Overview:
This 84-nucleotide sequence from Lentivirus humimdef1 belongs to the Rfam family "HIV gag stem loop 3 (GSL3)". The source organism's lineage runs through Viruses, Pararnavirae, Orthoretrovirinae, Lentivirus and Lentivirus humimdef1. The sequence is in the family's curated seed alignment.
[Rfam]
RNA sequence: GGCCAGGGGGAAGCAAAAAAUAUAAAUUAAAACAUAUAAUAUGGGCAAGCAAGGAGCUAGAACGAUUUGCGAUUAAUCCUGACC
Numbered sequence: 001g002g003c004c005a006g007g008g009g010g011a012a013g014c015a016a017a018a019a020a021u022a023u024a025a026a027u028u029a030a031a032a033c034a035u036a037u038a039a040u041a042u043g044g045g046c047a048a049g050c051a052a053g054g055a056g057c058u059a060g061a062a063c064g065a066u067u068u069g070c071g072a073u074u075a076a077u078c079c080u081g082a083c084c
Stems, first nucleotide, its partner, number of pairs: 001084002004081005
Dot-bracket structure: ((.(((((....................................................................))))).))